[Rfam]
Nucleotides: 090
Base pairs, nucleotide, nucleotide: 003084004083005082006081007080012074013073014072015071017070018069019068020067026066027065028064
Number, partner (000 for none) and nucleotide at each position: 001000c002000c003084g004083c005082a006081g007080g008000c009000u010000u011000a012074g013073u014072c015071u016000a017070g018069u019068g020067g021000u022000u023000a024000c025000u026066u027065c028064g029000c030000a031000u032000u033000a034000u035000c036000c037000a038000a039000g040000u041000c042000a043000a044000a045000u046000u047000u048000g049000a050000c051000a052000u053000c054000u055000g056000a057000u058000a059000c060000g061000c062000u063000u064028u065027g066026a067020c068019c069018a070017c071015g072014g073013a074012c075000g076000c077000c078000a079000u080007c081006c082005u083004g084003c085000a086000g087000u088000u089000u090000u
This 90-nucleotide RNA sequence from Araneus ventricosus belongs to the Rfam family "Vault RNA". Rfam describes the family as follows. This family of RNAs are found as part of the enigmatic vault ribonucleoprotein complex. The complex consists of a major vault protein (MVP), two minor vault proteins (VPARP and TEP1), and several small untranslated RNA molecules. It has been suggested that the vault complex is involved in drug resistance. Rfam classes the family as a non-coding RNA gene. It scores 41 bits against the family's covariance model. A reference for the family is Stadler et al. (2009), "Evolution of Vault RNAs", Mol Biol Evol.